Selenocysteine transfer RNA: an 85-nucleotide sequence from Trichobilharzia regenti.
Rfam links the family to the GO term triplet codon-amino acid adaptor activity.
A reference for the family is Mizutani and Goto (2000), "Eukaryotic selenocysteine tRNA has the 9/4 secondary structure", FEBS Lett.
[Rfam]
RNA sequence: GCCGAGAUGACCCUCGAUGGUCCAGGUGCAGGCUUCAAACCUGUAACCCAUUAGCAUCAGAGCGGUUCAAUUCCGCCUUCUCGGU
Numbered sequence: 001g002c003c004g005a006g007a008u009g010a011c012c013c014u015c016g017a018u019g020g021u022c023c024a025g026g027u028g029c030a031g032g033c034u035u036c037a038a039a040c041c042u043g044u045a046a047c048c049c050a051u052u053a054g055c056a057u058c059a060g061a062g063c064g065g066u067u068c069a070a071u072u073c074c075g076c077c078u079u080c081u082c083g084g085u
Stems, first nucleotide, its partner, number of pairs: 001085007009077001012026003016022001027045006047060001050057002062076004